[Rfam]
RNA sequence: CGGCGUUGUCGGUUGGGCCAGUGGCAAAUUUUAUCCCUGCAGCCCUAUCUCGCAACUCCUAGAACC
Number, nucleotide and partner (000 for none) at each position: 001c000002g059003g058004c000005g056006u055007u054008g053009u052010c000011g000012g000013u000014u000015g045016g044017g043018c000019c000020a000021g000022u000023g000024g000025c000026a000027a000028a000029u000030u000031u000032u000033a000034u000035c000036c000037c000038u000039g000040c000041a000042g000043c017044c016045c015046u000047a000048u000049c000050u000051c000052g009053c008054a007055a006056c005057u000058c003059c002060u000061a000062g000063a000064a000065c000066c000
Shown here is a 66-nucleotide RNA from Trypanosoma brucei, a member of the family "Trypanosomatid snoRNA TB10Cs2H1".
It is annotated as an H/ACA-box small nucleolar RNA.